Group II catalytic intron D1-D4-1: an 81-nucleotide RNA sequence from Candidatus Nitromaritima sp. SCGC AAA799-C22. From the family's description: Group II introns are found in rRNA, tRNA and mRNA of organelles in fungi, plants and protists, and also in mRNA in bacteria. A search with the family's covariance model found it, with a score of 60 bits. NCBI's taxonomy places the organism under Bacteria, Pseudomonadati, Nitrospinales, Nitrospinaceae, Candidatus Nitromaritima.

[Rfam]
RNA sequence: CUACCGUCAUCGAGAGGUGACGGGACGGGUGGACAGAAGUCAGCCGAGGGUAUAGUAGGUCCAUCGACCGGACUGAAGGCC
Numbered sequence: 001c002u003a004c005c006g007u008c009a010u011c012g013a014g015a016g017g018u019g020a021c022g023g024g025a026c027g028g029g030u031g032g033a034c035a036g037a038a039g040u041c042a043g044c045c046g047a048g049g050g051u052a053u054a055g056u057a058g059g060u061c062c063a064u065c066g067a068c069c070g071g072a073c074u075g076a077a078g079g080c081c
Stems, first nucleotide, its partner, number of pairs: 001027001004023008040047002049081003058074005